[Rfam]
RNA sequence: CUGCGGUGAUGGCACUCUUAGGACACCUUUGAGUUAAGUCAUGAAAAGUAAUGUAACCUCUGAGCAGC
Numbered sequence: 001c002u003g004c005g006g007u008g009a010u011g012g013c014a015c016u017c018u019u020a021g022g023a024c025a026c027c028u029u030u031g032a033g034u035u036a037a038g039u040c041a042u043g044a045a046a047a048g049u050a051a052u053g054u055a056a057c058c059u060c061u062g063a064g065c066a067g068c
Base pairs, nucleotide, nucleotide: 001067002066003065004064